[Rfam]
RNA sequence: GGCCAGUGAUGUAUGGUAAUUGUCCGUACCAUAUGAGGAGCUUCACGGCUCCUUUGAUUUUAAAUUUACCUUAAUUUCUGAGGCCU
Number, nucleotide and partner (000 for none) at each position: 001g085002g084003c083004c082005a000006g000007u000008g000009a000010u000011g000012u000013a000014u000015g000016g000017u000018a000019a000020u000021u000022g000023u000024c000025c000026g000027u000028a000029c000030c000031a000032u000033a000034u000035g000036a000037g000038g000039a000040g000041c000042u000043u000044c000045a000046c000047g000048g000049c000050u000051c000052c000053u000054u000055u000056g000057a000058u000059u000060u000061u000062a000063a000064a000065u000066u000067u000068a000069c000070c000071u000072u000073a000074a000075u000076u000077u000078c000079u000080g000081a000082g004083g003084c002085c001086u000
RNA: small nucleolar RNA snoR117